This 210-nucleotide sequence belongs to the Rfam family "IMES-1 RNA motif". By type it is a non-coding RNA gene. A reference for the family is Weinberg et al. (2009), "Exceptional structured noncoding RNAs revealed by bacterial metagenome analysis", Nature.
[Rfam]
RNA sequence: AGUGAACGUAUCAUUGAAGUAUCCUCAAGAAAAAGACUAUUCAUAAUGGCAUAGUACUCUAUAGUCAUUAAACAAACAUCAAAUCGCAUAGCAAAGAGUCAAAAAAAUAGAGAGCUUUGCGAGACCUACCAAGGGUGAAGAGAUACCAUCCAAGGAGCUGAAGAGAAAUCUCACUUUAGACGCCUGGGGAACUCGGACUAAAUUAAAAAA
Numbered sequence: 001a002g003u004g005a006a007c008g009u010a011u012c013a014u015u016g017a018a019g020u021a022u023c024c025u026c027a028a029g030a031a032a033a034a035g036a037c038u039a040u041u042c043a044u045a046a047u048g049g050c051a052u053a054g055u056a057c058u059c060u061a062u063a064g065u066c067a068u069u070a071a072a073c074a075a076a077c078a079u080c081a082a083a084u085c086g087c088a089u090a091g092c093a094a095a096g097a098g099u100c101a102a103a104a105a106a107a108u109a110g111a112g113a114g115c116u117u118u119g120c121g122a123g124a125c126c127u128a129c130c131a132a133g134g135g136u137g138a139a140g141a142g143a144u145a146c147c148a149u150c151c152a153a154g155g156a157g158c159u160g161a162a163g164a165g166a167a168a169u170c171u172c173a174c175u176u177u178a179g180a181c182g183c184c185u186g187g188g189g190a191a192c193u194c195g196g197a198c199u200a201a202a203u204u205a206a207a208a209a210a
Base pairs, nucleotide, nucleotide: 001058002057003056004055011048015043016042017041018040073188075185089122091120092119093118094117095116096115133151134150135149136148137147140172141171142170143169144168158179159178160177161176162175163174